A member of the RNA family "c-di-GMP-I riboswitch aptamer" from Methylomonas sp. DH-1, 82 nucleotides long.
RNA sequence: GCGUGUAAAAGCCAAACCCGUCGCGAGGUGGGGACGGAAAGCCACGGAUGUUGCCGCCAGGCAAGAUGGCCGGGUUGUCACC
Dot-bracket structure: ...........((...((((((....))))))...))..((((.(((((.((((......)))).))..)))))))......